RNA sequence: CGGCUGGUCGGAAACCAGCCAUAUAAGGAG
Dot-bracket structure: .(((((((.....)))))))..........
Numbered sequence: 001c002g003g004c005u006g007g008u009c010g011g012a013a014a015c016c017a018g019c020c021a022u023a024u025a026a027g028g029a030g
Stems, first nucleotide, its partner, number of pairs: 002020007
The record is a 30-nucleotide sequence from Edaphosphingomonas laterariae, which matches "L31-Coriobacteria ribosomal protein leader" in Rfam. Pairs were carried over by alignment from the consensus structure, which is taken from published work. NCBI's taxonomy places the organism under Bacteria, Pseudomonadota, Alphaproteobacteria, Sphingomonadales, Edaphosphingomonas. It scores 34 bits against the family's covariance model. The literature on the family includes a 2020 paper in BMC Microbiol by Eckert and Weinberg, "Discovery of 20 novel ribosomal leader candidates in bacteria and archaea".